[Rfam]
Description: This 100-nucleotide RNA belongs to the Rfam family "pemK RNA". The sequence is in the family's curated seed alignment.
RNA sequence: AUAAUGGUACUCCUGCUUAGUAACAGCCCGAGCGUGAUAAAACCGUCGCACGCAAUGAUAGCAGCCGACAGAGAACCUGCCGGGGGUGAAAUUCCCGUGG
Numbered sequence: 001a002u003a004a005u006g007g008u009a010c011u012c013c014u015g016c017u018u019a020g021u022a023a024c025a026g027c028c029c030g031a032g033c034g035u036g037a038u039a040a041a042a043c044c045g046u047c048g049c050a051c052g053c054a055a056u057g058a059u060a061g062c063a064g065c066c067g068a069c070a071g072a073g074a075a076c077c078u079g080c081c082g083g084g085g086g087u088g089a090a091a092u093u094c095c096c097g098u099g100g
Stems, first nucleotide, its partner, number of pairs: 012097001013064004065083003069079003084096003